[Rfam]
RNA sequence: GGUGGUUCUCGGGUGACGCACCUGGAACCAGAGAGGAGGGAGCCCGAUUCCGGGGUGUGUCACCCGAGAACCGCC
Numbered sequence: 001g002g003u004g005g006u007u008c009u010c011g012g013g014u015g016a017c018g019c020a021c022c023u024g025g026a027a028c029c030a031g032a033g034a035g036g037a038g039g040g041a042g043c044c045c046g047a048u049u050c051c052g053g054g055g056u057g058u059g060u061c062a063c064c065c066g067a068g069a070a071c072c073g074c075c
Stems, first nucleotide, its partner, number of pairs: 002074002005071013019057005024051004029046001031044001
This 75-nucleotide RNA from Cnephaeus nilssonii belongs to the Rfam family "mir-9223 microRNA precursor family". The match comes from Rfam's covariance-model search (55 bits).